[Rfam]
RNA sequence: UUGCGAUGACGACCAUUUAGGACACCUUUGUAUAAACCAUGAAAACAGAACCACAUCUGAGCAAU
Numbered sequence: 001u002u003g004c005g006a007u008g009a010c011g012a013c014c015a016u017u018u019a020g021g022a023c024a025c026c027u028u029u030g031u032a033u034a035a036a037c038c039a040u041g042a043a044a045a046c047a048g049a050a051c052c053a054c055a056u057c058u059g060a061g062c063a064a065u
Stems, first nucleotide, its partner, number of pairs: 001064004
Dot-bracket structure: ((((........................................................)))).
RNA: Small nucleolar RNA SNORD58
Organism: Stegastes partitus